[Rfam]
RNA sequence: GGGUCCGAGAGGCGCUGCAACGGGCGACUGCCCGCCACGCUCGGGCCCGUGACACUUCCGCAAGGGCGCCUCCCACAU
Number, nucleotide and partner (000 for none) at each position: 001g000002g047003g046004u045005c044006c043007g042008a041009g000010a000011g000012g000013c000014g000015c000016u000017g000018c000019a000020a000021c034022g033023g032024g031025c030026g000027a000028c000029u000030g025031c024032c023033c022034g021035c000036c000037a000038c000039g000040c000041u008042c007043g006044g005045g004046c003047c002048c000049g000050u000051g000052a000053c000054a000055c000056u000057u000058c000059c000060g000061c000062a000063a000064g000065g000066g000067c000068g000069c000070c000071u000072c000073c000074c000075a000076c000077a000078u000

A member of the RNA family "SAH (S-adenosyl-L-homocysteine) riboswitch aptamer" from Actinomadura latina, 78 nucleotides long. Its family is annotated with S-adenosylhomocysteine metabolic process and regulation of gene expression in the Gene Ontology. A search with the family's covariance model found it, with a score of 41 bits.